[Rfam]
RNA sequence: GCGAAGUGACGAUGAAAUUCAUGCUCAAAUCACUGACUUAUUGUGAUGUUAAAAUUGAAUCUCGACAGGUUCUGAUCGC
Numbered sequence: 001g002c003g004a005a006g007u008g009a010c011g012a013u014g015a016a017a018u019u020c021a022u023g024c025u026c027a028a029a030u031c032a033c034u035g036a037c038u039u040a041u042u043g044u045g046a047u048g049u050u051a052a053a054a055u056u057g058a059a060u061c062u063c064g065a066c067a068g069g070u071u072c073u074g075a076u077c078g079c
Stems, first nucleotide, its partner, number of pairs: 001079004
RNA: Small nucleolar RNA snoR14